[Rfam]
RNA sequence: GCCCCGGUAGCUCAGCACGGUAGAGCGGCGGGCUGCAGACCCGUAGGCCCCGGGUUCAAAUCCCGGCCGGGGCU
Numbered sequence: 001g002c003c004c005c006g007g008u009a010g011c012u013c014a015g016c017a018c019g020g021u022a023g024a025g026c027g028g029c030g031g032g033c034u035g036c037a038g039a040c041c042c043g044u045a046g047g048c049c050c051c052g053g054g055u056u057c058a059a060a061u062c063c064c065g066g067c068c069g070g071g072g073c074u
Stems, first nucleotide, its partner, number of pairs: 001073007010026004028044005050066005
RNA: tRNA
Organism: Caldivirga maquilingensis